Shown here is a 120-nucleotide RNA sequence from Drosera regia, a member of the family "Plastid-psbA-1 3UTR RNA". Pairs were carried over by alignment from the consensus structure, which was predicted with LocARNA. Lineage of the source: Eukaryota > Embryophyta > Gunneridae > Caryophyllales > Drosera. A reference for the family is Richter et al. (2023), "Retrograde signaling in plants: A critical review focusing on the GUN pathway and beyond", Plant Commun. Plastid psbA-1 is a non-coding RNA (ncRNA) present in plastids. By type it is a cis-regulatory element.
RNA sequence: UCGAAGCUCCUUCUACAAAUGGAUAAGAUUUCGGUCUUAGUGUAUACGAGUUAAGUUAUUGAAAGGGGGGGAGCAAUAACCAAUUUCUUGUUCUAUCAAGAGGUCCGGUAUUGCUCCCUU
Numbered sequence: 001u002c003g004a005a006g007c008u009c010c011u012u013c014u015a016c017a018a019a020u021g022g023a024u025a026a027g028a029u030u031u032c033g034g035u036c037u038u039a040g041u042g043u044a045u046a047c048g049a050g051u052u053a054a055g056u057u058a059u060u061g062a063a064a065g066g067g068g069g070g071g072a073g074c075a076a077u078a079a080c081c082a083a084u085u086u087c088u089u090g091u092u093c094u095a096u097c098a099a100g101a102g103g104u105c106c107g108g109u110a111u112u113g114c115u116c117c118c119u120u
Stems, first nucleotide, its partner, number of pairs: 008023003012019001066120001068119011083104001085102005